Rfam assigns this 54-nucleotide RNA sequence from Coregonus sp. 'balchen' to the family "UnaL2 LINE 3' element". Lineage of the source: Eukaryota > Actinopteri > Neopterygii > Clupeocephala > Coregonus.
RNA sequence: UGAAAAUACUACUUUAAGUCGCUCUGGAUAAGAGCGUCUGCUGAAUGACUAAAA
Numbered sequence: 001u002g003a004a005a006a007u008a009c010u011a012c013u014u015u016a017a018g019u020c021g022c023u024c025u026g027g028a029u030a031a032g033a034g035c036g037u038c039u040g041c042u043g044a045a046u047g048a049c050u051a052a053a054a
Stems, first nucleotide, its partner, number of pairs: 013043001015040002020036006